[Rfam]
RNA: Metazoan signal recognition particle RNA
RNA sequence: AGUGGUUUUCAAUUCUUUCGCUUGGAUUCUAUCAUCCUGUCACCUCUGGAGCUUGGGUGGAGGAGGGCAACUACUGUCUCCAAGUCCUGCCCUUCAUGUGGAGAGCUCACCUCCCUUUAGCUUGCAGACUGCAAGGUUGGCAUAGAGUAGUCUGUGCCAACCUGGCAGGCAAGGAUUGAGGGAAGGCUCAGGCUGGCAACAGAGCAGGCAAAACUCAACACUGCAAGCAGAUGGGAGAGAGUGAGCUUGAAUGGAUGGCAGUGACCUCUGGUGGCAUGAAUGUGCACCACUCCUCUCUU
Dot-bracket structure: (((((..((((...........))))..))....(((..........)))))).(((.((((...(...((...((((.(((....(((((.(((((.(...((((((((((.(((.(.((((((((.((((.(((((((((((((....))))))))))))).)))).......(((((.....(((....(((....)))....)))....)))))..))))))))..).)))))...))))))))).))))).))))).......))).)))).....))...)..)))).)))..